[Rfam]
RNA sequence: GCAUGGGUUUGGAUUUAUAGCAGGCCUGUUCCCAUGAGCCUCUCAUAGUGUCCGAUGCCAGAGCAAACUGUAGUCCCCAUCCAUUACCUGGCCUCCUUGCUCGUGGGCUGCACAGUCGGUAGGGGACAGCAGGGGU
Numbered sequence: 001g002c003a004u005g006g007g008u009u010u011g012g013a014u015u016u017a018u019a020g021c022a023g024g025c026c027u028g029u030u031c032c033c034a035u036g037a038g039c040c041u042c043u044c045a046u047a048g049u050g051u052c053c054g055a056u057g058c059c060a061g062a063g064c065a066a067a068c069u070g071u072a073g074u075c076c077c078c079a080u081c082c083a084u085u086a087c088c089u090g091g092c093c094u095c096c097u098u099g100c101u102c103g104u105g106g107g108c109u110g111c112a113c114a115g116u117c118g119g120u121a122g123g124g125g126a127c128a129g130c131a132g133g134g135g136u
Base pairs, nucleotide, nucleotide: 001058002057003056004055005053006052007051008050015048016047017046018045020043022041023040024039026036071129073127074126075125076124082119089110090109091108092107093106094105
Rfam assigns this 136-nucleotide sequence from Chrysochloris asiatica to the family "Small nucleolar RNA SNORA42/SNORA80 family". It is annotated as an H/ACA-box small nucleolar RNA. A search with the family's covariance model found it, with a score of 90 bits. The base pairs follow the family's consensus structure, which was predicted with RNAalifold. From the family's description: The members of this family belong to the H/ACA class of snoRNAs that guide the sites of modification of uridines to pseudouridines. Human ACA42 (SNORA42) was cloned from HeLa cells by immunoprecipitation with anti-GAR1 antibody. Its is predicted to guide the pseudouridylation of residues U109 and U572 of 18S rRNA. ACA42 shares the same host gene with ACA26, ACA46, ACA50. This family also includes mammalian snoRNA ACA67 (SNORA80) which was identified by computational screening and its expression in mouse experimentally verified by Northern blot and primer extension analysis. The family has 21 seed sequences and 1,535 matches in Rfam 15.1. The source organism's lineage runs through Eukaryota, Chordata, Mammalia, Chrysochlorinae and Chrysochloris. Gene Ontology terms of the family: RNA processing and nucleolus.